[Rfam]
RNA sequence: GUUGCUUCAUAUGGUGAACUCUCUCUAAUGAAGUGAGGGGUGUUCUAGUUUCCGAAGCAUAGAUAAAUUCGUAGUAUUAAACAGUUUGAUGUCGAUUUUUUUCUAUGGCAUCGUACUACCUGUCUUCUCCUACAUCU
Numbered sequence: 001g002u003u004g005c006u007u008c009a010u011a012u013g014g015u016g017a018a019c020u021c022u023c024u025c026u027a028a029u030g031a032a033g034u035g036a037g038g039g040g041u042g043u044u045c046u047a048g049u050u051u052c053c054g055a056a057g058c059a060u061a062g063a064u065a066a067a068u069u070c071g072u073a074g075u076a077u078u079a080a081a082c083a084g085u086u087u088g089a090u091g092u093c094g095a096u097u098u099u100u101u102u103c104u105a106u107g108g109c110a111u112c113g114u115a116c117u118a119c120c121u122g123u124c125u126u127c128u129c130c131u132a133c134a135u136c137u
Stems, first nucleotide, its partner, number of pairs: 003059006016045004020040005071130001073128002076125001083117003087113005
small nucleolar RNA snoR137: a 137-nucleotide RNA from Salvia splendens. The organism belongs to core Calosphace, within Eukaryota. Rfam 15.1 lists 808 matches to the family in 221 species. For this family Rfam cites "Mining small RNA sequencing data: a new approach to identify small nucleolar RNAs in Arabidopsis" (Chen and Wu, Nucleic Acids Res, 2009). The match comes from Rfam's covariance-model search (92 bits).